[Rfam]
A member of the RNA family "mir-252 microRNA precursor family" from Pomacea canaliculata, 71 nucleotides long.
The literature on the family includes a 2006 paper in Cell by Ruby et al., "Large-scale sequencing reveals 21U-RNAs and additional microRNAs and endogenous siRNAs in C. elegans".
The organism belongs to Pomacea, within Eukaryota.
Pairs were carried over by alignment from the consensus structure, which was predicted with RNAalifold.

RNA sequence: UGCCGGCGAUAAGUAGUGGUGCCGCAGGUAUGACUUGUCAGCUACCUGCUCAUCCCUGCUUAAGGUUGGUC
Numbered sequence: 001u002g003c004c005g006g007c008g009a010u011a012a013g014u015a016g017u018g019g020u021g022c023c024g025c026a027g028g029u030a031u032g033a034c035u036u037g038u039c040a041g042c043u044a045c046c047u048g049c050u051c052a053u054c055c056c057u058g059c060u061u062a063a064g065g066u067u068g069g070u071c
Base pairs, nucleotide, nucleotide: 002070003069004068005067006066007065010062011061012060013059014058015057016056018054019053024049025048026047027046028045029044030043